[Rfam]
RNA sequence: CAUGGCGAUGAUGAUAGCCUUGCCCUCUCUGAAUGAAACUUGAUGAGAUUUCAUUAAUAUACGCAUUUACUGAGCCAUG
Numbered sequence: 001c002a003u004g005g006c007g008a009u010g011a012u013g014a015u016a017g018c019c020u021u022g023c024c025c026u027c028u029c030u031g032a033a034u035g036a037a038a039c040u041u042g043a044u045g046a047g048a049u050u051u052c053a054u055u056a057a058u059a060u061a062c063g064c065a066u067u068u069a070c071u072g073a074g075c076c077a078u079g
Base pairs, nucleotide, nucleotide: 001079002078003077004076005075006074
Dot-bracket structure: ((((((...................................................................))))))
Annotation: Shown here is a 79-nucleotide sequence from Acanthosepion pharaonis, a member of the family "Small nucleolar RNA SNORD103/SNORD85". Pairs were carried over by alignment from the consensus structure. A reference for the family is Vitali et al. (2003), "Identification of 13 novel human modification guide RNAs", Nucleic Acids Res. NCBI's taxonomy places the organism under Eukaryota, Metazoa, Mollusca, Cephalopoda, Acanthosepion. The family's RNA type in Rfam is C/D-box small nucleolar RNA. The family has 41 seed sequences and 1,349 matches in Rfam 15.1.